[Rfam]
This 172-nucleotide sequence from Glaciimonas sp. belongs to the Rfam family "Group II catalytic intron D1-D4-3". Group II introns are found in rRNA, tRNA and mRNA of organelles in fungi, plants and protists, and also in mRNA in bacteria.
RNA sequence: UUAUGGGUGAAUGUGGGUCUAAAGAAAGCUGCAGGCAAAGCGCUGGUCUGAAGAACAGGAGGCGGGUAUGAGGCGUCGUAUUGUGGUGAGAUGUCCGUAAUUAUCAAAGCGCAAUACUUACACGGAACGAUACGGCGUAGACCCGACAGGUAUAAGCGUGACAGUGAAUGUG
Numbered sequence: 001u002u003a004u005g006g007g008u009g010a011a012u013g014u015g016g017g018u019c020u021a022a023a024g025a026a027a028g029c030u031g032c033a034g035g036c037a038a039a040g041c042g043c044u045g046g047u048c049u050g051a052a053g054a055a056c057a058g059g060a061g062g063c064g065g066g067u068a069u070g071a072g073g074c075g076u077c078g079u080a081u082u083g084u085g086g087u088g089a090g091a092u093g094u095c096c097g098u099a100a101u102u103a104u105c106a107a108a109g110c111g112c113a114a115u116a117c118u119u120a121c122a123c124g125g126a127a128c129g130a131u132a133c134g135g136c137g138u139a140g141a142c143c144c145g146a147c148a149g150g151u152a153u154a155a156g157c158g159u160g161a162c163a164g165u166g167a168a169u170g171u172g
Base pairs, nucleotide, nucleotide: 001016002015003014004013005012030170031169035165036164040159041158042157043156044155046151047150048149049148050147063145064144065143066142067141073138074137075136077134078133079132080131081130082129083128086110087109090105091104092103093102